[Rfam]
RNA sequence: UAUCUCUGGCUUCUCGUCAAUAGGGCAAAUCUUUCGCCUUUUACUAAAGAUUUCCGUGGCGAGGAGCAAUCAAUGAGUCUAUAGACUAUUUUUUGAAAUCUUGUCUCCGGACAGGAU
Numbered sequence: 001u002a003u004c005u006c007u008g009g010c011u012u013c014u015c016g017u018c019a020a021u022a023g024g025g026c027a028a029a030u031c032u033u034u035c036g037c038c039u040u041u042u043a044c045u046a047a048a049g050a051u052u053u054c055c056g057u058g059g060c061g062a063g064g065a066g067c068a069a070u071c072a073a074u075g076a077g078u079c080u081a082u083a084g085a086c087u088a089u090u091u092u093u094u095g096a097a098a099u100c101u102u103g104u105c106u107c108c109g110g111a112c113a114g115g116a117u
Stems, first nucleotide, its partner, number of pairs: 004077003009067011027053008098117006
The record is a 117-nucleotide RNA from Strigamia maritima, which matches "U5 spliceosomal RNA" in Rfam.